[Rfam]
RNA: MIR2629 microRNA precursor family
Organism: Medicago truncatula
RNA sequence: UGUCGAAGGAACUUCGGUAGUUAACUGCAGCCGGUUCCAAACUUCGGUAGUUAACUACCGCAGGGGCAA
Numbered sequence: 001u002g003u004c005g006a007a008g009g010a011a012c013u014u015c016g017g018u019a020g021u022u023a024a025c026u027g028c029a030g031c032c033g034g035u036u037c038c039a040a041a042c043u044u045c046g047g048u049a050g051u052u053a054a055c056u057a058c059c060g061c062a063g064g065g066g067c068a069a
Base pairs, nucleotide, nucleotide: 012064014062015060016059017058018057019056020055021054022053023052024051025050026049027048028047